Description: A member of the RNA family "TPP riboswitch aptamer (THI element)" from Pustulibacterium marinum, 92 nucleotides long. A search with the family's covariance model found it, with a score of 80 bits. The source organism's lineage runs through Bacteria, Pseudomonadati, Bacteroidota, Flavobacteriales and Pustulibacterium.
RNA sequence: CAUAAACUUUAGGGGUGCUGUAAAAAGCUGAGAUGAUACCCUUUGAACUUGAUCCGGUUAAUACCGGCGCAGGGAAAAGUACUACUUUUAUU
Numbered sequence: 001c002a003u004a005a006a007c008u009u010u011a012g013g014g015g016u017g018c019u020g021u022a023a024a025a026a027g028c029u030g031a032g033a034u035g036a037u038a039c040c041c042u043u044u045g046a047a048c049u050u051g052a053u054c055c056g057g058u059u060a061a062u063a064c065c066g067g068c069g070c071a072g073g074g075a076a077a078a079g080u081a082c083u084a085c086u087u088u089u090a091u092u
Stems, first nucleotide, its partner, number of pairs: 006080005011042004016036001017028003048073004054067004